[Rfam]
RNA: mir-87 microRNA precursor family
RNA sequence: AAUAAGCCGGCCUGAUGCCUUGUCUCAACCUUUGCGUUCGAACUGAGGUGAGCAAAGUUUCAGGUGUGUUCGAUU
Numbered sequence: 001a002a003u004a005a006g007c008c009g010g011c012c013u014g015a016u017g018c019c020u021u022g023u024c025u026c027a028a029c030c031u032u033u034g035c036g037u038u039c040g041a042a043c044u045g046a047g048g049u050g051a052g053c054a055a056a057g058u059u060u061c062a063g064g065u066g067u068g069u070u071c072g073a074u075u
Stems, first nucleotide, its partner, number of pairs: 003072001005070003010065006017058002020055002024052004029048003